[Rfam]
RNA sequence: AAUUGUUGUCCUGGGUAGAGUGGCAUCUAGCUUGUGGUGUCCAUCUCAUAUUAGCCAGGGAAAAAACAAUUCCUUGUUCAUCCCAGCUUGGCCUUUGGUCUGUGCCCAUGCUUAGUUCCUGCCUUGGAUAUAUUG
Dot-bracket structure: ..((.(((..((((...(((.((((((........))))))...)))...)))).))).)).............((((((.........(((....((.(((.((....)).))).))..))).)))))).....

Description
Shown here is a 135-nucleotide RNA from Erinaceus europaeus, a member of the family "Small nucleolar RNA SNORA48". The sequence is in the family's curated seed alignment. For this family Rfam cites "Mapping to nucleotide resolution of pseudouridine residues in large subunit ribosomal RNAs from representative eukaryotes, prokaryotes, archaebacteria, mitochondria and chloroplasts" (Ofengand and Bakin, J Mol Biol, 1997). The family's consensus secondary structure was predicted with RNAalifold. Rfam links the family to the GO terms RNA processing and nucleolus. The snoRNA ACA 48 has been identified to guide pseudouridylation of the residue U3797 in the 28S rRNA subunit.